[Rfam]
RNA sequence: CUCUCUCUUGCUUCAACAGUGUUUGGGCAGAAUAG
Numbered sequence: 001c002u003c004u005c006u007c008u009u010g011c012u013u014c015a016a017c018a019g020u021g022u023u024u025g026g027g028c029a030g031a032a033u034a035g
Base pairs, nucleotide, nucleotide: 001035002034004032006031007030008029010028012027013026014025015024016023017021

This 35-nucleotide RNA sequence from Oryctolagus cuniculus belongs to the Rfam family "Iron response element I". A reference for the family is Hentze et al. (1987), "Identification of the iron-responsive element for the translational regulation of human ferritin mRNA", Science. It scores 36 bits against the family's covariance model.